[Rfam]
RNA sequence: CAGAGUGGGCAGUCGGUGUCGAUCUACAUCAUUCGCAGGUCGACCCUUGUGCCUGUUUCGGU
Numbered sequence: 001c002a003g004a005g006u007g008g009g010c011a012g013u014c015g016g017u018g019u020c021g022a023u024c025u026a027c028a029u030c031a032u033u034c035g036c037a038g039g040u041c042g043a044c045c046c047u048u049g050u051g052c053c054u055g056u057u058u059c060g061g062u
Base pairs, nucleotide, nucleotide: 003058004057005056006055007054008053009052010051011050015046016045018044019043020042021041022040023039024038025037027035

Shown here is a 62-nucleotide RNA sequence from Caenorhabditis elegans, a member of the family "mir-2217 microRNA precursor family". Rfam links the family to the GO terms miRNA-mediated post-transcriptional gene silencing and RISC complex. The source organism's lineage runs through Eukaryota, Protostomia, Chromadorea, Rhabditomorpha and Caenorhabditis.